RNA sequence: CCUGCCCCAGCUCGUGUUGCAGGCGUGGCUGCAGUGCCACAUUUGUGUCAUUCGGUGGCAGAGAGGAAAAGGUGAGGUCUUCCCCUGGUGCUCUGACCCACGUGGGCUCCCAGGAUUGCUCAACAACCUGACAUU
Numbered sequence: 001c002c003u004g005c006c007c008c009a010g011c012u013c014g015u016g017u018u019g020c021a022g023g024c025g026u027g028g029c030u031g032c033a034g035u036g037c038c039a040c041a042u043u044u045g046u047g048u049c050a051u052u053c054g055g056u057g058g059c060a061g062a063g064a065g066g067a068a069a070a071g072g073u074g075a076g077g078u079c080u081u082c083c084c085c086u087g088g089u090g091c092u093c094u095g096a097c098c099c100a101c102g103u104g105g106g107c108u109c110c111c112a113g114g115a116u117u118g119c120u121c122a123a124c125a126a127c128c129u130g131a132c133a134u135u
Base pairs, nucleotide, nucleotide: 002061003060004059005058006057007055008054010052014048015047019046020045021044022043025040026039027038028037029036070129071128072127073126074121075120076119081115082114083113087111088110090107091106092105093104
A member of the RNA family "Small nucleolar RNA SNORA17" from Formicarius rufipectus, 135 nucleotides long. About the family: snoRNA ACA 17 belongs to the H/ACA family of snoRNAs and is predicted to guide pseudouridylation of the 28S rRNA at positions U4659 and U4598. For this family Rfam cites "Mapping to nucleotide resolution of pseudouridine residues in large subunit ribosomal RNAs from representative eukaryotes, prokaryotes, archaebacteria, mitochondria and chloroplasts" (Ofengand and Bakin, J Mol Biol, 1997).